[Rfam]
RNA sequence: GCCGAUGAUGUUUCAAUCCAACUAUGAGAUGUAGUGAAGCCAAGGUCCCUGCUUUUUGCAGGGUGAACCUCCUUGGUUUUGCUACAUUGCACAUGAUUAAUACGAAUUACACUGAGGC
Numbered sequence: 001g002c003c004g005a006u007g008a009u010g011u012u013u014c015a016a017u018c019c020a021a022c023u024a025u026g027a028g029a030u031g032u033a034g035u036g037a038a039g040c041c042a043a044g045g046u047c048c049c050u051g052c053u054u055u056u057u058g059c060a061g062g063g064u065g066a067a068c069c070u071c072c073u074u075g076g077u078u079u080u081g082c083u084a085c086a087u088u089g090c091a092c093a094u095g096a097u098u099a100a101u102a103c104g105a106a107u108u109a110c111a112c113u114g115a116g117g118c
Stems, first nucleotide, its partner, number of pairs: 001118003047063005
Small nucleolar RNA Z278: a 118-nucleotide sequence from Nicotiana tabacum. snoZ278 is a C/D box small nucleolar RNA. Its methylation guide targets have not been reported. Gene Ontology terms of the family: RNA processing and nucleolus. On this family, see Chen et al., Nucleic Acids Res 2003: "The high diversity of snoRNAs in plants: identification and comparative study of 120 snoRNA genes from Oryza sativa". The family's consensus secondary structure was predicted with PFOLD. Rfam classes the family as a C/D-box small nucleolar RNA.